A member of the RNA family "Makes More Granules Regulator RNA (mmgR)" from Amaricoccus macauensis, 73 nucleotides long.
The source organism's lineage runs through Bacteria, Pseudomonadati, Pseudomonadota, Rhodobacterales and Amaricoccus.
The family is grouped with related families in Rfam's "suhB sRNA clan".
The base pairs follow the family's consensus structure.
RNA sequence: CAUACACGCCCUACGGGCGUUUCCUCCCUAAACUUGGGCCGUGCCUCGCGCACGGCCUCUUUUUUUGUCCGAG
Numbered sequence: 001c002a003u004a005c006a007c008g009c010c011c012u013a014c015g016g017g018c019g020u021u022u023c024c025u026c027c028c029u030a031a032a033c034u035u036g037g038g039c040c041g042u043g044c045c046u047c048g049c050g051c052a053c054g055g056c057c058u059c060u061u062u063u064u065u066u067g068u069c070c071g072a073g
Stems, first nucleotide, its partner, number of pairs: 008018004036058009
Dot-bracket structure: .......((((...)))).................(((((((((.....)))))))))...............